[Rfam]
RNA sequence: GCGACGUAACUUUCUCGCAUUAAGUUGCAAGGGGGAGGGGAAUGGGUCCCCUCCGGUUGCGCUCGCGGAAGG
Dot-bracket structure: ((((((.((((.((..(((......)))..)).((((((((.....)))))))))))).)).))))......
Numbered sequence: 001g002c003g004a005c006g007u008a009a010c011u012u013u014c015u016c017g018c019a020u021u022a023a024g025u026u027g028c029a030a031g032g033g034g035g036a037g038g039g040g041a042a043u044g045g046g047u048c049c050c051c052u053c054c055g056g057u058u059g060c061g062c063u064c065g066c067g068g069a070a071g072g
Stems, first nucleotide, its partner, number of pairs: 001066004005061002008058004013032002017028003034054008
Rfam assigns this 72-nucleotide RNA from Olsenella sp. oral taxon 809 to the family "Corio-PBP RNA".
It is one of the family's seed sequences.
It is annotated as a small RNA.